RNA: c-di-GMP-I-GGC riboswitch aptamer
RNA sequence: UAAGAUAAAGCCAAACCUUUUGAAAAGAAGGGACGGAAAGCCUAGAGUCUUUUAGAGAUAGUCGGGCUGCCUAAA
Numbered sequence: 001u002a003a004g005a006u007a008a009a010g011c012c013a014a015a016c017c018u019u020u021u022g023a024a025a026a027g028a029a030g031g032g033a034c035g036g037a038a039a040g041c042c043u044a045g046a047g048u049c050u051u052u053u054a055g056a057g058a059u060a061g062u063c064g065g066g067c068u069g070c071c072u073a074a075a
Stems, first nucleotide, its partner, number of pairs: 001075001003072002011036002016031006034061001039068004045063002047059003